Shown here is a 75-nucleotide RNA sequence, a member of the family "Plastid-psbA-1 3UTR RNA". The family's consensus secondary structure was predicted with LocARNA. Its Rfam clan is "Plastid-psbA 3UTR RNA clan". Plastid psbA-1 is a non-coding RNA (ncRNA) present in plastids.

[Rfam]
RNA sequence: AGUAAAUAAAAAUAAAUAGUAAAGGAGCAAUGCCAAAUUUCUUGUUAUAUCAAGAGGUUUGGUAUUGCUCCUUUA
Numbered sequence: 001a002g003u004a005a006a007u008a009a010a011a012a013u014a015a016a017u018a019g020u021a022a023a024g025g026a027g028c029a030a031u032g033c034c035a036a037a038u039u040u041c042u043u044g045u046u047a048u049a050u051c052a053a054g055a056g057g058u059u060u061g062g063u064a065u066u067g068c069u070c071c072u073u074u075a
Base pairs, nucleotide, nucleotide: 021074022073023072024071025070026069027068028067029066030065031064032063033062035060036059037058039056040055041054042053043052